[Rfam]
RNA sequence: CACUCUGGAAAGCGGCGACGUUGGUAACGUCGCCCACCGACGGGCGUAACCUUGCCGCUUCUUGGCGGUGGGGGAAAUCUCUCAGGUCAUGGGACAGAGGG
Dot-bracket structure: (.(((((......((((((.........)))))).(((((..((.(...((((.................))))....))))).))).......))))).)
RNA: Glycine riboswitch aptamer